Shown here is an 82-nucleotide RNA sequence from Microcebus murinus, a member of the family "Small nucleolar RNA SNORD101". Pairs were carried over by alignment from the consensus structure, which was predicted with PFOLD. Rfam classes the family as a C/D-box small nucleolar RNA. The match comes from Rfam's covariance-model search (50 bits).
RNA sequence: GGUUGAAUGAUGACUUAAAUCGUCGAUACCCCUUCACGCUCCACUGUACUGAGUGACAAACAUCAGUCACAGUCUGACAAAC
Numbered sequence: 001g002g003u004u005g006a007a008u009g010a011u012g013a014c015u016u017a018a019a020u021c022g023u024c025g026a027u028a029c030c031c032c033u034u035c036a037c038g039c040u041c042c043a044c045u046g047u048a049c050u051g052a053g054u055g056a057c058a059a060a061c062a063u064c065a066g067u068c069a070c071a072g073u074c075u076g077a078c079a080a081a082c
Stems, first nucleotide, its partner, number of pairs: 001082001003080003
Dot-bracket structure: (.(((........................................................................))).)